[Rfam]
RNA sequence: CUGACAGAAGAGAGUGAGCACACACCGGCAAUUGUAUAAAUGUAUAUUUUUUCCGGUGCGUGCUCACUUCUCUUUCUGUCAG
Numbered sequence: 001c002u003g004a005c006a007g008a009a010g011a012g013a014g015u016g017a018g019c020a021c022a023c024a025c026c027g028g029c030a031a032u033u034g035u036a037u038a039a040a041u042g043u044a045u046a047u048u049u050u051u052u053c054c055g056g057u058g059c060g061u062g063c064u065c066a067c068u069u070c071u072c073u074u075u076c077u078g079u080c081a082g
Base pairs, nucleotide, nucleotide: 001082002081003080004079005078006077007076008075009074010072011071012070013068014067015066016065017064018063019062020061021060023058024057025056
RNA: mir-156 microRNA precursor family
Organism: Camphora micrantha